[Rfam]
RNA sequence: ACCCCCUGGCAAUGGGCAAGGAAACACCUGAUUGCUGGUGUUGCUCUUAUAUCAAUCAGGGGCAAAGCAGAUGUAUAGUCCUUAGUUCAUCCUAGCUUGAUGUCUGUGUCAGUGGCCAGAGCUGUUUUAUGCCUGGGGUGGGGGA
Numbered sequence: 001a002c003c004c005c006c007u008g009g010c011a012a013u014g015g016g017c018a019a020g021g022a023a024a025c026a027c028c029u030g031a032u033u034g035c036u037g038g039u040g041u042u043g044c045u046c047u048u049a050u051a052u053c054a055a056u057c058a059g060g061g062g063c064a065a066a067g068c069a070g071a072u073g074u075a076u077a078g079u080c081c082u083u084a085g086u087u088c089a090u091c092c093u094a095g096c097u098u099g100a101u102g103u104c105u106g107u108g109u110c111a112g113u114g115g116c117c118a119g120a121g122c123u124g125u126u127u128u129a130u131g132c133c134u135g136g137g138g139u140g141g142g143g144g145a
Stems, first nucleotide, its partner, number of pairs: 003062006013054003019048003023042006085139004099133001101131001105129002110124002
Rfam assigns this 145-nucleotide sequence from Cnephaeus nilssonii to the family "Small nucleolar RNA SNORA48".
Lineage of the source: Eukaryota > Vertebrata > Euteleostomi > Chiroptera > Cnephaeus.
The match comes from Rfam's covariance-model search (62 bits).
The snoRNA ACA 48 has been identified to guide pseudouridylation of the residue U3797 in the 28S rRNA subunit.
Rfam links the family to the GO terms RNA processing and nucleolus.